[Rfam]
RNA sequence: AUGAACUCAGAUGACAGUAUCUGCGUUUGGUAUCUAUUGAUACGUCUAUUCUCAACGGUAACGUUGGGCAUAGAUCCUCUUCUACACGUCGACAAGAUAAAUCUUGUGUUUGCCAGCCUUUAUGGCUGGCUUUUUUCUGU
Numbered sequence: 001a002u003g004a005a006c007u008c009a010g011a012u013g014a015c016a017g018u019a020u021c022u023g024c025g026u027u028u029g030g031u032a033u034c035u036a037u038u039g040a041u042a043c044g045u046c047u048a049u050u051c052u053c054a055a056c057g058g059u060a061a062c063g064u065u066g067g068g069c070a071u072a073g074a075u076c077c078u079c080u081u082c083u084a085c086a087c088g089u090c091g092a093c094a095a096g097a098u099a100a101a102u103c104u105u106g107u108g109u110u111u112g113c114c115a116g117c118c119u120u121u122a123u124g125g126c127u128g129g130c131u132u133u134u135u136u137c138u139g140u
Base pairs, nucleotide, nucleotide: 005026006025008023010021011020012019030043031042032041033040034039052067053066054065055064056063057062092107093106094105095104096103097102112130113129114128115127116126117125118124
The family of this 140-nucleotide RNA from Vibrio proteolyticus is "Vibrio RNA VqmR".
Rfam links the family to the GO terms negative regulation of single-species biofilm formation, sRNA-mediated gene silencing and mRNA binding.
The base pairs follow the family's consensus structure, which is taken from published work.
Repress the expression of multiple mRNAs including the rtx (repeats in toxin) toxin genes and the vpsT, which is required for biofilm formation.
It is annotated as a small RNA.
NCBI's taxonomy places the organism under Bacteria, Pseudomonadati, Vibrionales, Vibrio, Vibrio proteolyticus.